The family of this 67-nucleotide sequence from Prunus persica is "Small nucleolar RNA U49". The family is grouped with related families in Rfam's "SNORD49 clan". It scores 60 bits against the family's covariance model. The family's consensus secondary structure was predicted with CMfinder. Rfam links the family to the GO terms nucleolus and RNA processing. It is annotated as a C/D-box small nucleolar RNA. Rfam 15.1 lists 340 matches to the family in 152 species.
[Rfam]
RNA sequence: UACCAAUGAGGAAGAAUGCCCAAAGUGAUAGGAAGUGCCGUAUGACACUUUAAACAGCGGCGGCUAC
Numbered sequence: 001u002a003c004c005a006a007u008g009a010g011g012a013a014g015a016a017u018g019c020c021c022a023a024a025g026u027g028a029u030a031g032g033a034a035g036u037g038c039c040g041u042a043u044g045a046c047a048c049u050u051u052a053a054a055c056a057g058c059g060g061c062g063g064c065u066a067c
Base pairs, nucleotide, nucleotide: 014061032051033050034049035048036047037046